[Rfam]
RNA sequence: AAAAAGACAAACCCUGAUUUCCAUGCCCAACGUUUGACCGUCCGUCUUAUUUAAAAAAAAUAUGAAAAAAAUUAAAAAGACAAGUCACGCAUAAAAUAUUAAUCAUGUUUUAUCAUCUAACAACGAUGAAAAUACGAAUUAUAAAAAAAUAUCAUAUAAGACAGACAGUUAAAGUUAGACACGGAAACCUAUGAUUUAUCUUUUU
Numbered sequence: 001a002a003a004a005a006g007a008c009a010a011a012c013c014c015u016g017a018u019u020u021c022c023a024u025g026c027c028c029a030a031c032g033u034u035u036g037a038c039c040g041u042c043c044g045u046c047u048u049a050u051u052u053a054a055a056a057a058a059a060a061u062a063u064g065a066a067a068a069a070a071a072u073u074a075a076a077a078a079g080a081c082a083a084g085u086c087a088c089g090c091a092u093a094a095a096a097u098a099u100u101a102a103u104c105a106u107g108u109u110u111u112a113u114c115a116u117c118u119a120a121c122a123a124c125g126a127u128g129a130a131a132a133u134a135c136g137a138a139u140u141a142u143a144a145a146a147a148a149a150u151a152u153c154a155u156a157u158a159a160g161a162c163a164g165a166c167a168g169u170u171a172a173a174g175u176u177a178g179a180c181a182c183g184g185a186a187a188c189c190u191a192u193g194a195u196u197u198a199u200c201u202u203u204u205u
Base pairs, nucleotide, nucleotide: 027178029176030175031174033173034172035171036170037169038168040166041165042164044162045161046160047159048158049157050156

The family of this 205-nucleotide sequence from Oryza rufipogon is "MIR812 microRNA precursor family". Rfam 15.1 lists 57,451 matches to the family in 24 species. Its family is annotated with RISC complex and miRNA-mediated post-transcriptional gene silencing in the Gene Ontology. It scores 108 bits against the family's covariance model.